[Rfam]
Cyanobacterial functional RNA 1: a 63-nucleotide RNA from Aphanothece hegewaldii.
The match comes from Rfam's covariance-model search (55 bits).
Pairs were carried over by alignment from the consensus structure, which is taken from published work.

RNA sequence: GCGGAGACAAUGUUUCCGUUCACUCCUCACACCACACUCCGCUCGAUAUUGCUUCGGGCGGUU
Numbered sequence: 001g002c003g004g005a006g007a008c009a010a011u012g013u014u015u016c017c018g019u020u021c022a023c024u025c026c027u028c029a030c031a032c033c034a035c036a037c038u039c040c041g042c043u044c045g046a047u048a049u050u051g052c053u054u055c056g057g058g059c060g061g062u063u
Stems, first nucleotide, its partner, number of pairs: 001019008040060007
By type it is a small RNA.